[Rfam]
RNA sequence: GCCUUCUCAAUGAGCUCCUUCCUGCCGUCAAGUCAGUGGCAGUCUAUGGAUUCGCACGAGAAGAAUAUUAAUCCCUCAGUGCUGACGCUCAUCUCUGUUUGCUUCAGAUGUGUGAUUGCCAGCAUUGUGGAACAUUA
Numbered sequence: 001g002c003c004u005u006c007u008c009a010a011u012g013a014g015c016u017c018c019u020u021c022c023u024g025c026c027g028u029c030a031a032g033u034c035a036g037u038g039g040c041a042g043u044c045u046a047u048g049g050a051u052u053c054g055c056a057c058g059a060g061a062a063g064a065a066u067a068u069u070a071a072u073c074c075c076u077c078a079g080u081g082c083u084g085a086c087g088c089u090c091a092u093c094u095c096u097g098u099u100u101g102c103u104u105c106a107g108a109u110g111u112g113u114g115a116u117u118g119c120c121a122g123c124a125u126u127g128u129g130g131a132a133c134a135u136u137a
Stems, first nucleotide, its partner, number of pairs: 003063006014055002016050003022042007074130002077127003092110001094108004